[Rfam]
RNA: Histone 3' UTR stem-loop
RNA sequence: CCAAAGGCUCUUUUCAGAGCCACCCACCUACUCAGAAAAGAGUUGU
Numbered sequence: 001c002c003a004a005a006g007g008c009u010c011u012u013u014u015c016a017g018a019g020c021c022a023c024c025c026a027c028c029u030a031c032u033c034a035g036a037a038a039a040g041a042g043u044u045g046u
Stems, first nucleotide, its partner, number of pairs: 006021006